[Rfam]
RNA sequence: UACCGAGGUUUUCCUUGGCAGUUAACUGCAGCCGGUUUUUGAAUUCUUCGGCAGUUAACCGCCGAGGUGGUA
Numbered sequence: 001u002a003c004c005g006a007g008g009u010u011u012u013c014c015u016u017g018g019c020a021g022u023u024a025a026c027u028g029c030a031g032c033c034g035g036u037u038u039u040u041g042a043a044u045u046c047u048u049c050g051g052c053a054g055u056u057a058a059c060c061g062c063c064g065a066g067g068u069g070g071u072a
Base pairs, nucleotide, nucleotide: 013067015065016064017063018062019061021059022058023057024056025055026054027053028052029051
Dot-bracket structure: ............(.(((((.(((((((((.....................))))))))).))))).).....
MIR2629 microRNA precursor family: a 72-nucleotide sequence from Medicago truncatula. Taxonomically the source falls in Medicago (Eukaryota, Euphyllophyta, fabids, Trifolieae).